[Rfam]
This 135-nucleotide sequence from Cottoperca gobio belongs to the Rfam family "Small nucleolar RNA SNORA14". It is annotated as an H/ACA-box small nucleolar RNA. Rfam's curators write: ACA14 is a member of the H/ACA class of snoRNA that guide the sites of modification of uridines to pseudouridines.

RNA sequence: ACGCAUCCUUAAUAAACCCCCUGGUUGCUUUUUGUGGUCUCUGGGACAAGAAAGGGUGCAAGAUCAACCUUAGAAUUUUCCAAAGCUGAGAGCCAUGUGACAGUAGCUCUUGGCUAUUUCACCUCUAAGACAAGU
Numbered sequence: 001a002c003g004c005a006u007c008c009u010u011a012a013u014a015a016a017c018c019c020c021c022u023g024g025u026u027g028c029u030u031u032u033u034g035u036g037g038u039c040u041c042u043g044g045g046a047c048a049a050g051a052a053a054g055g056g057u058g059c060a061a062g063a064u065c066a067a068c069c070u071u072a073g074a075a076u077u078u079u080c081c082a083a084a085g086c087u088g089a090g091a092g093c094c095a096u097g098u099g100a101c102a103g104u105a106g107c108u109c110u111u112g113g114c115u116a117u118u119u120c121a122c123c124u125c126u127a128a129g130a131c132a133a134g135u
Stems, first nucleotide, its partner, number of pairs: 003059004009051002020045005027038002063135002069129006084115007092107002098103001